[Rfam]
RNA sequence: GGUAUUCCUUAUCUGUGUCUAAUACGUUGAAUUGUCUGGAGCCUGUCCCGCUGUGUCCGCAAUCCUUCAGGCACAGUGAGACAGGCUCGUCGUGUAUACCUUGCCAGUGGCAGGG
Dot-bracket structure: ((((...................(((............(((((((((..(((((.((.(........).)).)))))..)))))))))..)))........))))..........

Annotation: tp2: a 115-nucleotide sequence from Erwinia billingiae. Pairs were carried over by alignment from the consensus structure, which was predicted with RNAalifold. A reference for the family is Rivas et al. (2001), "Computational identification of noncoding RNAs in E. coli by comparative genomics", Curr Biol.